[Rfam]
RNA sequence: AUGAAAAUAGACAGAGAGACUGCAUAUUUUUGCGGCGCCGACGGGGAAAGCAUGUGAAUGUGAAACUCUCAGGCAAAAGGAUGUUUAUGGGACG
Dot-bracket structure: ......(((((((......((((........)))).(((((..(((...((........))....))))).))).......)))))))......
Shown here is a 94-nucleotide RNA sequence from Listeria booriae, a member of the family "Glycine riboswitch aptamer". A reference for the family is Mandal et al. (2004), "A glycine-dependent riboswitch that uses cooperative binding to control gene expression", Science. Pairs were carried over by alignment from the consensus structure.